[Rfam]
RNA sequence: GAGGAAACAAGGCAAAGCCAGAGUGAUCUGGUGACGCAAAGCUAUAGGGUCUAUUUAUUAGAAAAUACGACAGCCAGUUGCCGAA
Dot-bracket structure: ...........((...((((((....))))))...))..((((...(((((....(.(....).)...)))..))))))......
RNA: c-di-GMP-I riboswitch aptamer
Organism: Hoskinsella hominis